RNA sequence: CAUAUAUUUUAUGAUGGUACGAUGCUAAAUCCCUAACGGGAGGGAUUGUACCUGAUUUUCAUAUG
Numbered sequence: 001c002a003u004a005u006a007u008u009u010u011a012u013g014a015u016g017g018u019a020c021g022a023u024g025c026u027a028a029a030u031c032c033c034u035a036a037c038g039g040g041a042g043g044g045a046u047u048g049u050a051c052c053u054g055a056u057u058u059u060c061a062u063a064u065g
Base pairs, nucleotide, nucleotide: 001065002064003063004062005061016052017051018050019049020048021047022046023045025043031040032039033038

About this RNA:
The record is a 65-nucleotide RNA from Mytilus coruscus, which matches "Selenocysteine insertion sequence 1" in Rfam. The incorporation of selenocysteine into a protein sequence is directed by an in-frame UGA codon (usually a stop codon) within the coding region of the mRNA. Selenoprotein mRNAs contain a conserved secondary structure in the 3' UTR that is required for the distinction of UGA stop from UGA selenocysteine. A reference for the family is Walczak et al. (1996), "A novel RNA structural motif in the selenocysteine insertion element of eukaryotic selenoprotein mRNAs", RNA. Lineage of the source: Eukaryota > Metazoa > Lophotrochozoa > Mollusca > Mytilus. The family has 61 seed sequences and 3,793 matches in Rfam 15.1.